A member of the RNA family "Small nucleolar RNA snoR8a" from Brassica napus, 100 nucleotides long.
The literature on the family includes a 2001 paper in RNA by Brown et al., "Multiple snoRNA gene clusters from Arabidopsis".
It is annotated as a C/D-box small nucleolar RNA.
The source organism's lineage runs through Eukaryota, Embryophyta, Tracheophyta, Spermatophyta and Brassica.

[Rfam]
RNA sequence: AAGAGAGCAGUGAUUAUAAACCACAAGAAUCAAAAAAAUCUGACUUGCUCAAUUUUUGGGCAUGAUAGACUUAUUAUACACCCAUAGAAUAUGAGCUCUC
Numbered sequence: 001a002a003g004a005g006a007g008c009a010g011u012g013a014u015u016a017u018a019a020a021c022c023a024c025a026a027g028a029a030u031c032a033a034a035a036a037a038a039u040c041u042g043a044c045u046u047g048c049u050c051a052a053u054u055u056u057u058g059g060g061c062a063u064g065a066u067a068g069a070c071u072u073a074u075u076a077u078a079c080a081c082c083c084a085u086a087g088a089a090u091a092u093g094a095g096c097u098c099u100c
Stems, first nucleotide, its partner, number of pairs: 003100002006097002
Dot-bracket structure: ..((.((........................................................................................)).))